Shown here is a 313-nucleotide sequence, a member of the family "throat-1 RNA". Rfam classes the family as a small RNA.
RNA sequence: AAGCGAUUAUAAUAGUUUCGCCUACGGUUUUGAAUAGCCGACGCUAUAGAAUAUUCAUGGUUUACGACUUCGUACCUAUUUCAAGAAGCGUAUUCCAUAAAAGGUAGAAGAUGUAGCGACGCCUAUUCUGUUUAGCGAUUGAAAUAACAGAUAAAUUAGCUACAAAGGGUAAGGUUAAAUCGCCGGAGUAAGAUUCCGGUAACGGCGCAAGUCGUGGGAUUAUAUAGAUAUAUUAGCAAUAAUAUAACAAGUAGGGCAAUUUGGAUUAAGACGCUUGAUAAUAUAUAUAGCUGUAGAAGGCUAACUAUAAAUA
Numbered sequence: 001a002a003g004c005g006a007u008u009a010u011a012a013u014a015g016u017u018u019c020g021c022c023u024a025c026g027g028u029u030u031u032g033a034a035u036a037g038c039c040g041a042c043g044c045u046a047u048a049g050a051a052u053a054u055u056c057a058u059g060g061u062u063u064a065c066g067a068c069u070u071c072g073u074a075c076c077u078a079u080u081u082c083a084a085g086a087a088g089c090g091u092a093u094u095c096c097a098u099a100a101a102a103g104g105u106a107g108a109a110g111a112u113g114u115a116g117c118g119a120c121g122c123c124u125a126u127u128c129u130g131u132u133u134a135g136c137g138a139u140u141g142a143a144a145u146a147a148c149a150g151a152u153a154a155a156u157u158a159g160c161u162a163c164a165a166a167g168g169g170u171a172a173g174g175u176u177a178a179a180u181c182g183c184c185g186g187a188g189u190a191a192g193a194u195u196c197c198g199g200u201a202a203c204g205g206c207g208c209a210a211g212u213c214g215u216g217g218g219a220u221u222a223u224a225u226a227g228a229u230a231u232a233u234u235a236g237c238a239a240u241a242a243u244a245u246a247a248c249a250a251g252u253a254g255g256g257c258a259a260u261u262u263g264g265a266u267u268a269a270g271a272c273g274c275u276u277g278a279u280a281a282u283a284u285a286u287a288u289a290g291c292u293g294u295a296g297a298a299g300g301c302u303a304a305c306u307a308u309a310a311a312u313a
Base pairs, nucleotide, nucleotide: 003021004020005019006018025040026039027038028037058097059096060095063092064091065090066089069086070085112164113163114162115161116160117159125152126151128150129149130148131147183199184198185197186196187195202215203214204213205212206211229246230245231244232243233242234241235240248277249276250275251274252273288303289302290301291300292299
Dot-bracket structure: ..((((...........))))...((((........)))).................(((..((((..((..............))..))))..)))..............((((((.......((.((((...............))))))......))))))..................(((((.......)))))..(((((....))))).............(((((((....))))))).(((((....................)))))..........(((((......)))))..........